[Rfam]
RNA sequence: GCCCGUGUCAGAGGCCGCGGUGAACAUUAGUAUGGACAUUCAGUCAAGUUUGUUUGUCCGGAAAGGGAACACCGCCGAAGCGUCCCUCGCUGGGGUCAUGCUGAACAAGUAUGACACUGUCUGACGGAAGCAACCCGGCUUCCAUCAGGCGCGCUGACACGGGC
Numbered sequence: 001g002c003c004c005g006u007g008u009c010a011g012a013g014g015c016c017g018c019g020g021u022g023a024a025c026a027u028u029a030g031u032a033u034g035g036a037c038a039u040u041c042a043g044u045c046a047a048g049u050u051u052g053u054u055u056g057u058c059c060g061g062a063a064a065g066g067g068a069a070c071a072c073c074g075c076c077g078a079a080g081c082g083u084c085c086c087u088c089g090c091u092g093g094g095g096u097c098a099u100g101c102u103g104a105a106c107a108a109g110u111a112u113g114a115c116a117c118u119g120u121c122u123g124a125c126g127g128a129a130g131c132a133a134c135c136c137g138g139c140u141u142c143c144a145u146c147a148g149g150c151g152c153g154c155u156g157a158c159a160c161g162g163g164c
Stems, first nucleotide, its partner, number of pairs: 006159006017075006025067001033060006079091004092118002095115008120149005126143005

This 164-nucleotide RNA from Acidaminobacter hydrogenoformans belongs to the Rfam family "Lysine riboswitch aptamer". Gene Ontology term of the family: lysine biosynthetic process. About the family: Riboswitches are metabolite binding domains within certain messenger RNAs that serve as precision sensors for their corresponding targets. Allosteric rearrangement of mRNA structure is mediated by ligand binding, and this results in modulation of gene expression. This family includes riboswitches that sense lysine in a number of genes involved in lysine metabolism, including lysC. It scores 72 bits against the family's covariance model. Lineage of the source: Bacteria > Bacillota > Peptostreptococcales > Acidaminobacteraceae > Acidaminobacter hydrogenoformans.